[Rfam]
Nucleotides: 080
Base pairs, nucleotide, nucleotide: 001080002079005076006075037048038047039046040045
Number, partner (000 for none) and nucleotide at each position: 001080a002079g003000a004000u005076c006075a007000g008000g009000u010000g011000a012000u013000g014000a015000g016000g017000u018000a019000a020000u021000a022000c023000u024000g025000c026000a027000a028000c029000a030000a031000u032000a033000u034000g035000a036000u037048g038047g039046a040045g041000u042000a043000a044000u045040c046039u047038u048037u049000g050000u051000g052000a053000u054000u055000a056000u057000u058000a059000g060000u061000a062000u063000u064000u065000a066000a067000g068000u069000c070000u071000c072000u073000g074000a075006u076005g077000a078000u079002c080001u